Notes: A member of the RNA family "Clostridiales-2 RNA" from Anaerosolibacter carboniphilus, 81 nucleotides long. It is annotated as a small RNA. NCBI's taxonomy places the organism under Bacteria, Bacillati, Clostridia, Peptostreptococcales, Anaerosolibacter. Pairs were carried over by alignment from the consensus structure, which is taken from published work.
[Rfam]
RNA sequence: AAAAAGCAGGGGUUGUAAGGAGAAAAUCUCCUGCUGCACUCAGGAAGGUGCUCAGACAGCGGAGCUGUCGUCGAAGGAAAC
Dot-bracket structure: ..............((.(((((.....)))))))....................(((((.....)))))............